[Rfam]
RNA sequence: AUGCUGCAAACGCCGAAUGUCGAGCCGCCACCAGCGGCUCGGCAACGGGGAACCCAACGCGGCGCACGGCUUCACGGCGUGUGUCGCAGGGGCUAAUCCGGCCGAAGCCGGACGCUUACUCAGCGAAGCGAGCCCGUCAGCUAACCCCGCAGGCAAACGCUGGAGUCUCG
Number, nucleotide and partner (000 for none) at each position: 001a000002u000003g000004c000005u000006g000007c000008a000009a000010a000011c000012g154013c153014c152015g000016a000017a000018u044019g043020u042021c041022g040023a039024g038025c037026c036027g035028c034029c000030a000031c000032c000033a000034g028035c027036g026037g025038c024039u023040c022041g021042g020043c019044a018045a000046c149047g148048g147049g146050g145051a000052a000053c000054c000055c089056a000057a000058c000059g000060c000061g000062g000063c000064g000065c000066a000067c000068g000069g000070c000071u000072u000073c000074a000075c000076g000077g000078c000079g000080u000081g000082u000083g000084u000085c000086g000087c000088a000089g055090g135091g134092g133093c000094u000095a000096a000097u000098c111099c110100g109101g108102c000103c000104g000105a000106a000107g000108c101109c100110g099111g098112a000113c000114g129115c128116u127117u126118a000119c000120u000121c000122a000123g000124c000125g000126a117127a116128g115129c114130g000131a000132g000133c092134c091135c090136g000137u000138c000139a000140g000141c000142u000143a000144a000145c050146c049147c048148c047149g046150c000151a000152g014153g013154c012155a000156a000157a000158c000159g000160c000161u000162g000163g000164a000165g000166u000167c000168u000169c000170g000
This 170-nucleotide RNA sequence from Phycisphaerae bacterium RAS1 belongs to the Rfam family "c-di-AMP riboswitch aptamer (ydaO/yuaA leader)". This family represents a conserved RNA structure found upstream of the ydaO and yuaA genes in Bacillus subtilis and related genes in other bacteria. The ydaO/yuaA element is thought to act as a genetic 'off' switch for the ydaO and yuaA genes in its native state. It is believed that the element may be triggered during osmotic shock leading to activation of ydaO, a predicted amino acid transporter gene, and members of the yuaA-yubG operon which code for KtrA and KtrB K+ transporters. NCBI's taxonomy places the organism under Bacteria, Pseudomonadati, Planctomycetota, Phycisphaerae. It scores 51 bits against the family's covariance model.